[Rfam]
RNA sequence: AUUCUCUGUUAUGGAGAAUAAUGCUUGGUUUGUGGUUCCAAGCUAGUCGCAAACGGGAGCCGAGAUCGCAGUCCUGACUCGGUUGAGUGGCCCUGUUUGUCGACGAACGUCCCACAGUUC
Numbered sequence: 001a002u003u004c005u006c007u008g009u010u011a012u013g014g015a016g017a018a019u020a021a022u023g024c025u026u027g028g029u030u031u032g033u034g035g036u037u038c039c040a041a042g043c044u045a046g047u048c049g050c051a052a053a054c055g056g057g058a059g060c061c062g063a064g065a066u067c068g069c070a071g072u073c074c075u076g077a078c079u080c081g082g083u084u085g086a087g088u089g090g091c092c093c094u095g096u097u098u099g100u101c102g103a104c105g106a107a108c109g110u111c112c113c114a115c116a117g118u119u120c
Base pairs, nucleotide, nucleotide: 001019002018003017004016005015006014023043024042025041026040027039028038032115033114034113035112046104047103048102050099051098052097059091060090061089062088064084065083070079071078072077
RNA: RAGATH-11 RNA